[Rfam]
RNA sequence: UUGCAGGAUGUCUAGGGUUCCGUUUGCAUUUGCAAAGUCUGGUCCGAGAGAUAUCGCCCGGCGGCACAUCCGUUGGGUACACGGCGGGGCAAAAUCCCGGGAGGC
Numbered sequence: 001u002u003g004c005a006g007g008a009u010g011u012c013u014a015g016g017g018u019u020c021c022g023u024u025u026g027c028a029u030u031u032g033c034a035a036a037g038u039c040u041g042g043u044c045c046g047a048g049a050g051a052u053a054u055c056g057c058c059c060g061g062c063g064g065c066a067c068a069u070c071c072g073u074u075g076g077g078u079a080c081a082c083g084g085c086g087g088g089g090c091a092a093a094a095u096c097c098c099g100g101g102a103g104g105c
Stems, first nucleotide, its partner, number of pairs: 007055006015045002020042002022039001023036005056078008080100001082103001086098003
Background:
The family of this 105-nucleotide sequence from Tateyamaria sp. ANG-S1 is "Guanidine-I riboswitch aptamer". The match comes from Rfam's covariance-model search (88 bits). This family represents a conserved RNA structure found upstream of the ykkC and yxkD genes in Bacillus subtilis and related genes in other bacteria. The source organism's lineage runs through Bacteria, Pseudomonadati, Alphaproteobacteria, Roseobacteraceae and Tateyamaria.